[Rfam]
RNA: 6S / SsrS RNA
Organism: Paenibacillus paeoniae
RNA sequence: UACAUCCUGCGAUGUUCGUAACGGCUCUUCGUUGUUUUGAACCAAUGGCUGUUUCACGGGAGACCUAUAUUGCUUUGUAGCUGACAUGCCCUCGAAAGGGGAUCUCAAAAGCGAAGCUGCGGACACCCACCUGCGAGAGCGGGUUCAGAAACAUGUGGGUCGGACGGCAUAGGCGGGUUUUCU
Numbered sequence: 001u002a003c004a005u006c007c008u009g010c011g012a013u014g015u016u017c018g019u020a021a022c023g024g025c026u027c028u029u030c031g032u033u034g035u036u037u038u039g040a041a042c043c044a045a046u047g048g049c050u051g052u053u054u055c056a057c058g059g060g061a062g063a064c065c066u067a068u069a070u071u072g073c074u075u076u077g078u079a080g081c082u083g084a085c086a087u088g089c090c091c092u093c094g095a096a097a098g099g100g101g102a103u104c105u106c107a108a109a110a111g112c113g114a115a116g117c118u119g120c121g122g123a124c125a126c127c128c129a130c131c132u133g134c135g136a137g138a139g140c141g142g143g144u145u146c147a148g149a150a151a152c153a154u155g156u157g158g159g160u161c162g163g164a165c166g167g168c169a170u171a172g173g174c175g176g177g178u179u180u181u182c183u
Base pairs, nucleotide, nucleotide: 002181004179006177007176008175009174010173012170013169014168015167017166018165019164034152035151036150037149038147039146040145041144042143043142058128059127060126062124064122065121069118072117073116074115075114076113077112078111084105089101090100091099